Shown here is a 136-nucleotide sequence from Phytophthora pseudosyringae, a member of the family "MIR8788 microRNA precursor family". Pairs were carried over by alignment from the consensus structure, which was predicted with RNAalifold. The match comes from Rfam's covariance-model search (130 bits).
[Rfam]
RNA sequence: GCGAGAGUUCGCCCCGCCUACCAAGCGUACCAACGCCGCACUUCAGCACACGAGCGCUCGUUGACCGCGUGGUUAGAUUGCGCUCGUUUGCUGAGUUGCGGCGCUGGUUCGCUUGGUACGCUAGGCGCACUCUUGC
Numbered sequence: 001g002c003g004a005g006a007g008u009u010c011g012c013c014c015c016g017c018c019u020a021c022c023a024a025g026c027g028u029a030c031c032a033a034c035g036c037c038g039c040a041c042u043u044c045a046g047c048a049c050a051c052g053a054g055c056g057c058u059c060g061u062u063g064a065c066c067g068c069g070u071g072g073u074u075a076g077a078u079u080g081c082g083c084u085c086g087u088u089u090g091c092u093g094a095g096u097u098g099c100g101g102c103g104c105u106g107g108u109u110c111g112c113u114u115g116g117u118a119c120g121c122u123a124g125g126c127g128c129a130c131u132c133u134u135g136c
Stems, first nucleotide, its partner, number of pairs: 001136008010127004016121002019118009029108004034103003038099003042095007050087007059080002062075004